[Rfam]
RNA sequence: UCGAGAGGUUGGCGGACGACUGACCCGCCAAUUCGGUCAGGCCCGGAAGGGAGCAGCCGUAACGGGAUAGGUCGGGUCGUUCAAUCUCUCACUUA
Numbered sequence: 001u002c003g004a005g006a007g008g009u010u011g012g013c014g015g016a017c018g019a020c021u022g023a024c025c026c027g028c029c030a031a032u033u034c035g036g037u038c039a040g041g042c043c044c045g046g047a048a049g050g051g052a053g054c055a056g057c058c059g060u061a062a063c064g065g066g067a068u069a070g071g072u073c074g075g076g077u078c079g080u081u082c083a084a085u086c087u088c089u090c091a092c093u094u095a
Stems, first nucleotide, its partner, number of pairs: 003090005009083001011081004017074005024066004034059004042051003

The family of this 95-nucleotide RNA from Paremcibacter congregatus is "Bacterial small signal recognition particle RNA". Clan: SRP clan. On this family, see Rosenblad et al., Nucleic Acids Res 2003: "SRPDB: Signal Recognition Particle Database". It is annotated as a non-coding RNA gene. Gene Ontology terms of the family: SRP-dependent cotranslational protein targeting to membrane, signal sequence recognition and signal recognition particle, plasma membrane targeting. The match comes from Rfam's covariance-model search (56 bits).